[Rfam]
RNA: Acido-Lenti-1 RNA
RNA sequence: CCUGGGACUGGCGUCCCAGGCUAUCAAAUGCCGUGGCUUCGCCACU
Numbered sequence: 001c002c003u004g005g006g007a008c009u010g011g012c013g014u015c016c017c018a019g020g021c022u023a024u025c026a027a028a029u030g031c032c033g034u035g036g037c038u039u040c041g042c043c044a045c046u
Stems, first nucleotide, its partner, number of pairs: 001020008033045005